[Rfam]
The record is a 79-nucleotide RNA from Methylorubrum extorquens, which matches "Fluoride riboswitch aptamer (crcB RNA motif)" in Rfam. Its family is annotated with response to fluoride and positive regulation of gene expression in the Gene Ontology.

RNA sequence: GCCUUCGACGGUAAUGGUGUCUGCCGGGCUUUGAGCCGAACCGCCGAUCCUUGAUGCGGCUGAUGACUCCUACGAUUCG
Numbered sequence: 001g002c003c004u005u006c007g008a009c010g011g012u013a014a015u016g017g018u019g020u021c022u023g024c025c026g027g028g029c030u031u032u033g034a035g036c037c038g039a040a041c042c043g044c045c046g047a048u049c050c051u052u053g054a055u056g057c058g059g060c061u062g063a064u065g066a067c068u069c070c071u072a073c074g075a076u077u078c079g
Base pairs, nucleotide, nucleotide: 010025011024012023013022016070017069019067020066021065043060044059045058046057